Rfam assigns this 102-nucleotide RNA from Panicum virgatum to the family "small nucleolar RNA snoR126". By type it is a C/D-box small nucleolar RNA. The source organism's lineage runs through Eukaryota, commelinids, Paniceae, Panicinae and Panicum sect. Hiantes. The match comes from Rfam's covariance-model search (69 bits). Gene Ontology terms of the family: RNA processing and nucleolus.

RNA sequence: UGGCUGUGAUGACAACAACAUACAUUUCUCGAUGCUGAAACAUCAUUGUUCUUGAUUGUUCAAGGACCAAAUUUUGAUGAGCUCUGUGCGUGUCUGAGCCAG
Numbered sequence: 001u002g003g004c005u006g007u008g009a010u011g012a013c014a015a016c017a018a019c020a021u022a023c024a025u026u027u028c029u030c031g032a033u034g035c036u037g038a039a040a041c042a043u044c045a046u047u048g049u050u051c052u053u054g055a056u057u058g059u060u061c062a063a064g065g066a067c068c069a070a071a072u073u074u075u076g077a078u079g080a081g082c083u084c085u086g087u088g089c090g091u092g093u094c095u096g097a098g099c100c101a102g
Stems, first nucleotide, its partner, number of pairs: 001101004